Source information
Small nucleolar RNA Z221/R21b: a 94-nucleotide RNA from Prunus yedoensis.
RNA sequence: AGGCAGUGAUGAAGAACUAAGGAAGUCAUGCACCACUGAUGAUUUUAAUCAAUCUGUGCUGAUAACCUUCUUCAUACCCAUUGAUUAUGAGCCU
Numbered sequence: 001a002g003g004c005a006g007u008g009a010u011g012a013a014g015a016a017c018u019a020a021g022g023a024a025g026u027c028a029u030g031c032a033c034c035a036c037u038g039a040u041g042a043u044u045u046u047a048a049u050c051a052a053u054c055u056g057u058g059c060u061g062a063u064a065a066c067c068u069u070c071u072u073c074a075u076a077c078c079c080a081u082u083g084a085u086u087a088u089g090a091g092c093c094u
Stems, first nucleotide, its partner, number of pairs: 001094004
For this family Rfam cites "The high diversity of snoRNAs in plants: identification and comparative study of 120 snoRNA genes from Oryza sativa" (Chen et al., Nucleic Acids Res, 2003). Pairs were carried over by alignment from the consensus structure, which was predicted with WAR. Lineage of the source: Eukaryota > Embryophyta > Pentapetalae > rosids > Prunus yedoensis. The family's RNA type in Rfam is C/D-box small nucleolar RNA.